[Rfam]
RNA sequence: AUAAAGAUGAAAAAAAUCAGUUGGAUUACACUAAACAUAUAUUAUGUUUGAUUUUUUAACCUCCUACUUUAGAUUUAU
Numbered sequence: 001a002u003a004a005a006g007a008u009g010a011a012a013a014a015a016a017u018c019a020g021u022u023g024g025a026u027u028a029c030a031c032u033a034a035a036c037a038u039a040u041a042u043u044a045u046g047u048u049u050g051a052u053u054u055u056u057u058a059a060c061c062u063c064c065u066a067c068u069u070u071a072g073a074u075u076u077a078u
Base pairs, nucleotide, nucleotide: 001078002077003076004075005074